[Rfam]
RNA sequence: CUUCAGCGAGCCGAGCAGCACGGGCCGCUCCGCCGGGCGGUCCUGGCCGUAGGUCGCCAGCAGCGCCUGGGCCUC
Numbered sequence: 001c002u003u004c005a006g007c008g009a010g011c012c013g014a015g016c017a018g019c020a021c022g023g024g025c026c027g028c029u030c031c032g033c034c035g036g037g038c039g040g041u042c043c044u045g046g047c048c049g050u051a052g053g054u055c056g057c058c059a060g061c062a063g064c065g066c067c068u069g070g071g072c073c074u075c
Stems, first nucleotide, its partner, number of pairs: 015025002031071001033069001038065002043060003047056001049054001
A member of the RNA family "ASpks TB sRNA" from Streptomyces cacaoi, 75 nucleotides long. The family's consensus secondary structure is taken from published work. Taxonomically the source falls in Streptomyces (Bacteria, Bacillati, Kitasatosporales, Streptomycetaceae). The match comes from Rfam's covariance-model search (75 bits). By type it is an antisense RNA.